RNA sequence: GUUAGUCUUCAAGGCAGGGUGCAAUUCCCGACCGGCGGUAUAGCCCGCAACCCGUUUCGGCGGUGGAACCCGGUGUCAUCCCGGGUGCCGACAGUAAAGUCUGGUAGAUAGAAGCAAACA
Numbered sequence: 001g002u003u004a005g006u007c008u009u010c011a012a013g014g015c016a017g018g019g020u021g022c023a024a025u026u027c028c029c030g031a032c033c034g035g036c037g038g039u040a041u042a043g044c045c046c047g048c049a050a051c052c053c054g055u056u057u058c059g060g061c062g063g064u065g066g067a068a069c070c071c072g073g074u075g076u077c078a079u080c081c082c083g084g085g086u087g088c089c090g091a092c093a094g095u096a097a098a099g100u101c102u103g104g105u106a107g108a109u110a111g112a113a114g115c116a117a118a119c120a
Stems, first nucleotide, its partner, number of pairs: 003118001007114004017029003031100002033090002035048004043088002052063002068086002071083003092103003
A member of the RNA family "FMN riboswitch aptamer (RFN element)" from Limosilactobacillus secaliphilus, 120 nucleotides long.
The organism belongs to Limosilactobacillus, within Bacteria.
The base pairs follow the family's consensus structure, which is taken from published work.